[Rfam]
Nucleotides: 122
Base pairs, nucleotide, nucleotide: 009044011042012037013036015034016029017028018027060115061114062113063112064111065110066109070108071107072106075103076102077101078100083096084095085094086093
Number, partner (000 for none) and nucleotide at each position: 001000a002000a003000g004000u005000a006000a007000u008000g009044g010000a011042u012037u013036g014000g015034g016029a017028u018027g019000a020000u021000c022000a023000a024000a025000a026000c027018u028017g029016u030000c031000u032000g033000a034015c035000a036013c037012a038000a039000u040000u041000g042011g043000a044009c045000c046000u047000u048000g049000c050000c051000a052000u053000a054000g055000c056000a057000a058000g059000a060115a061114a062113g063112u064111c065110u066109a067000a068000c069000c070108u071107a072106u073000u074000c075103c076102a077101g078100u079000g080000u081000u082000c083096u084095u085094u086093c087000u088000u089000u090000c091000a092000u093086g094085a095084g096083a097000c098000a099000a100078g101077c102076u103075g104000u105000u106072a107071u108070a109066u110065a111064g112063a113062c114061u115060u116000a117000a118000a119000c120000a121000g122000u
The family of this 122-nucleotide sequence from Carlito syrichta is "Small nucleolar RNA SNORA28". About the family: ACA28 is a member of the H/ACA class of snoRNA that guide the sites of modification of uridines to pseudouridines. A reference for the family is Huttenhofer et al. (2001), "RNomics: an experimental approach that identifies 201 candidates for novel, small, non-messenger RNAs in mouse", EMBO J. The match comes from Rfam's covariance-model search (104 bits).